[Rfam]
Nucleotides: 052
Stems, first nucleotide, its partner, number of pairs: 016044007025035004
Number, partner (000 for none) and nucleotide at each position: 001000u002000g003000c004000u005000g006000c007000g008000g009000g010000g011000a012000u013000c014000g015000c016044c017043c018042c019041c020040c021039g022038u023000c024000a025035g026034c027033g028032c029000g030000u031000u032028g033027c034026g035025c036000c037000c038022a039021c040020g041019g042018g043017g044016g045000c046000g047000a048000a049000a050000c051000u052000g